[Rfam]
RNA sequence: GUCUUCUCACUGAGCUCCUUUCUGUCUUUUGGUGGCAGUUAAUGAAUUCACAUGAGAAAAAGAGAAUUUACAGAGCUAUCAUCAUUUUACCUUCUGUCUUUACAGAAGUAUUUGUGGCUGUUUUGUGAGACUUUA
Dot-bracket structure: ...(((((.....(.(.(...(((((.......))))).....).)....)..))))).........((((((.................((((((......))))))..............)))))).......
Shown here is a 135-nucleotide sequence from Carlito syrichta, a member of the family "Small nucleolar RNA SNORA75". The organism belongs to Carlito, within Eukaryota. The literature on the family includes a 1997 paper in Genes Dev by Ganot et al., "The family of box ACA small nucleolar RNAs is defined by an evolutionarily conserved secondary structure and ubiquitous sequence elements essential for RNA accumulation". Rfam's curators write: U23 belongs to the H/ACA class of snoRNAs. snoRNAs bind a number of proteins (including dyskerin, Gar1p and Nop10p in the case of the H/ACA class) to form snoRNP complexes. This class are thought to guide the sites of modification of uridines to pseudouridines by forming direct base pairing interactions with substrate RNAs. Targets include ribosomal and spliceosomal RNAs as well as the Trypanosoma spliced leader RNA (SL RNA) as possibly other, still unknown cellular RNAs. U23 can direct the pseudouridylation of U97 in human 18S rRNA (Bachellerie JP, Ganot, P unpublished data). The family has 6 seed sequences and 414 matches in Rfam 15.1.